[Rfam]
Nucleotides: 066
Stems, first nucleotide, its partner, number of pairs: 001066007009058005017050002020047007028039001
Number, partner (000 for none) and nucleotide at each position: 001066g002065c003064c004063g005062g006061u007060c008000c009058u010057c011056g012055g013054u014000a015000g016000u017050g018049g019000c020047c021046c022045c023044c024043u025042g026041g027000c028039u029000c030000a031000c032000a033000g034000g035000a036000g037000a038000a039028a040000c041026c042025c043024a044023g045022g046021g047020g048000a049018c050017u051000u052000c053000g054013a055012u056011c057010g058009a059000a060007g061006a062005c063004c064003g065002g066001c